Record summary: The family of this 35-nucleotide RNA from Carlito syrichta is "Iron response element I". Gene Ontology term of the family: response to iron ion. The source organism's lineage runs through Eukaryota, Metazoa, Eumetazoa, Tetrapoda and Carlito.
RNA sequence: CUGUCUCUUGCGCCAACAGUGUUUGGACGGAACAG
Numbered sequence: 001c002u003g004u005c006u007c008u009u010g011c012g013c014c015a016a017c018a019g020u021g022u023u024u025g026g027a028c029g030g031a032a033c034a035g
Stems, first nucleotide, its partner, number of pairs: 001035004006031003010028001013026004017021001